[Rfam]
RNA sequence: GAAACCAGAGGGCAAACCAGGCGAAAGCCUCGGGACGCAAAGCUUCAGGCCUGCAGCGCACUCCGCGCCAUGGCGGCUGGGCUACCGUU
Numbered sequence: 001g002a003a004a005c006c007a008g009a010g011g012g013c014a015a016a017c018c019a020g021g022c023g024a025a026a027g028c029c030u031c032g033g034g035a036c037g038c039a040a041a042g043c044u045u046c047a048g049g050c051c052u053g054c055a056g057c058g059c060a061c062u063c064c065g066c067g068c069c070a071u072g073g074c075g076g077c078u079g080g081g082c083u084a085c086c087g088u089u
Stems, first nucleotide, its partner, number of pairs: 012038002017033002019030004041083004046079003049074003056068004
RNA: c-di-GMP-I riboswitch aptamer